[Rfam]
Mammalian CPEB3 ribozyme: a 75-nucleotide RNA from Alligator mississippiensis. The base pairs follow the family's consensus structure, which is taken from published work. NCBI's taxonomy places the organism under Eukaryota, Deuterostomia, Euteleostomi, Sauria, Alligator. It scores 37 bits against the family's covariance model.

RNA sequence: UUGCAAGUUCAAGGUCAUAGCAGAAGUGCUUAUGCCACAGCUCUGUCAGAUUCCAACAAAUUUGCAAAUUCUACU
Numbered sequence: 001u002u003g004c005a006a007g008u009u010c011a012a013g014g015u016c017a018u019a020g021c022a023g024a025a026g027u028g029c030u031u032a033u034g035c036c037a038c039a040g041c042u043c044u045g046u047c048a049g050a051u052u053c054c055a056a057c058a059a060a061u062u063u064g065c066a067a068a069u070u071c072u073a074c075u
Stems, first nucleotide, its partner, number of pairs: 013042003019075002022072004026038003047064006